The record is a 28-nucleotide RNA, which matches "L19-Flavobacteria ribosomal protein leader" in Rfam. A reference for the family is Eckert and Weinberg (2020), "Discovery of 20 novel ribosomal leader candidates in bacteria and archaea", BMC Microbiol. By type it is a cis-regulatory leader.

RNA sequence: CAACCUCUGACGAUAACCGUGUAAGUUG
Numbered sequence: 001c002a003a004c005c006u007c008u009g010a011c012g013a014u015a016a017c018c019g020u021g022u023a024a025g026u027u028g
Stems, first nucleotide, its partner, number of pairs: 001028004008023001010020003
The family's consensus secondary structure is taken from published work.